[Rfam]
Shown here is a 242-nucleotide RNA from Peribacillus psychrosaccharolyticus, a member of the family "T-box leader".
It scores 129 bits against the family's covariance model.
The literature on the family includes a 1994 paper in J Bacteriol by Grundy et al., "Interaction between the acceptor end of tRNA and the T box stimulates antitermination in the Bacillus subtilis tyrS gene: a new role for the discriminator base".
The source organism's lineage runs through Bacteria, Bacillati, Bacilli, Bacillaceae and Peribacillus.
RNA sequence: AUAAAAGCUUUGACGAAGAAGAGUACCUUAUUGACUGUUCUAUAGAGAGCCGGUGGGUGGUGUAAACCGGUGGGCAACAGUAAGCGAAUGGACUUCCGAGCUCCAAACUGAACCUGGAUGUUUCAGCAGUAGGCUUUGGCGGAUACGUCUUACCGUUAUUUGAGACAGGUAUUCACAUUUGGAUACUAUAAAGUGAGCUUCUUAGCUAAUAAAGGUGGUACCGCGGGGUCCUCGUCCUUUUG
Numbered sequence: 001a002u003a004a005a006a007g008c009u010u011u012g013a014c015g016a017a018g019a020a021g022a023g024u025a026c027c028u029u030a031u032u033g034a035c036u037g038u039u040c041u042a043u044a045g046a047g048a049g050c051c052g053g054u055g056g057g058u059g060g061u062g063u064a065a066a067c068c069g070g071u072g073g074g075c076a077a078c079a080g081u082a083a084g085c086g087a088a089u090g091g092a093c094u095u096c097c098g099a100g101c102u103c104c105a106a107a108c109u110g111a112a113c114c115u116g117g118a119u120g121u122u123u124c125a126g127c128a129g130u131a132g133g134c135u136u137u138g139g140c141g142g143a144u145a146c147g148u149c150u151u152a153c154c155g156u157u158a159u160u161u162g163a164g165a166c167a168g169g170u171a172u173u174c175a176c177a178u179u180u181g182g183a184u185a186c187u188a189u190a191a192a193g194u195g196a197g198c199u200u201c202u203u204a205g206c207u208a209a210u211a212a213a214g215g216u217g218g219u220a221c222c223g224c225g226g227g228g229u230c231c232u233c234g235u236c237c238u239u240u241u242g
Base pairs, nucleotide, nucleotide: 007101008100015096016095017094018093027084028083029082030081031080038074039073040072049071050070051069052068053067054066104138105137106135108133109132140155141154142153196207197206198205199204212239213238214237215236223235224234225233226232227231